[Rfam]
RNA sequence: UGCCAGGCACAGUGCAAUAACCGCUUGUGAAAUAUGUCAGGUCAGGAAUGAAGCAGCAUUAAGCAAGGCAGGUUAUGUGCAACUGUAAGCCUGGCAUUU
Number, nucleotide and partner (000 for none) at each position: 001u000002g000003c000004c093005a092006g091007g090008c089009a086010c085011a084012g083013u081014g080015c077016a000017a076018u075019a074020a073021c072022c071023g000024c067025u066026u065027g064028u063029g000030a000031a000032a000033u000034a059035u058036g057037u056038c000039a000040g000041g000042u051043c050044a049045g000046g000047a000048a000049u044050g043051a042052a000053g000054c000055a000056g037057c036058a035059u034060u000061a000062a000063g028064c027065a026066a025067g024068g000069c000070a000071g022072g021073u020074u019075a018076u017077g015078u000079g000080c014081a013082a000083c012084u011085g010086u009087a000088a000089g008090c007091c006092u005093g004094g000095c000096a000097u000098u000099u000
The record is a 99-nucleotide RNA from Candidatus Syntrophosphaera thermopropionivorans, which matches "Bacterial small signal recognition particle RNA" in Rfam. A search with the family's covariance model found it, with a score of 75 bits. Rfam's curators write: The signal recognition particle (SRP) is a universally conserved ribonucleoprotein involved in the co-translational targeting of proteins to membranes. The organism belongs to Candidatus Syntrophosphaera, within Bacteria. Pairs were carried over by alignment from the consensus structure, which is taken from published work. The literature on the family includes a 2003 paper in Nucleic Acids Res by Rosenblad et al., "SRPDB: Signal Recognition Particle Database".